[Rfam]
RNA: Plant small nucleolar RNA R71
RNA sequence: AAGCCACGAUGAGGGCAUUGGUUGGUGUAACCCUUGAAACGCUCACAUGCUUCACAGAAGCUUUCACCAGUCUUUUGUAAAAAGCCAGAAAUCUCAUUUCUGAGUCC
Dot-bracket structure: ..((((..................................................((.(..........).))..........................)).))..